[Rfam]
RNA sequence: GUAUGGGUCACCGCAAGGUUUCUGGGCAUCCGCACCAGACAUGAACACGCGUGGCCCGCUCCGCGAGUCACGACCGGCAACGCCGGACAGCAUCCACCCGCCGGUACCGAAACCGGC
Dot-bracket structure: .........(((....))).(((((.........)))))..........((((((.((.....)).)))))).((((.....)))).............((((((......))))))
Numbered sequence: 001g002u003a004u005g006g007g008u009c010a011c012c013g014c015a016a017g018g019u020u021u022c023u024g025g026g027c028a029u030c031c032g033c034a035c036c037a038g039a040c041a042u043g044a045a046c047a048c049g050c051g052u053g054g055c056c057c058g059c060u061c062c063g064c065g066a067g068u069c070a071c072g073a074c075c076g077g078c079a080a081c082g083c084c085g086g087a088c089a090g091c092a093u094c095c096a097c098c099c100g101c102c103g104g105u106a107c108c109g110a111a112a113c114c115g116g117c
Stems, first nucleotide, its partner, number of pairs: 010019003021039005050072006057065002074086004100117006

Shown here is a 117-nucleotide sequence from Pseudomonas japonica, a member of the family "Pseudomon-groES RNA". The family's consensus secondary structure is taken from published work. The match comes from Rfam's covariance-model search (84 bits).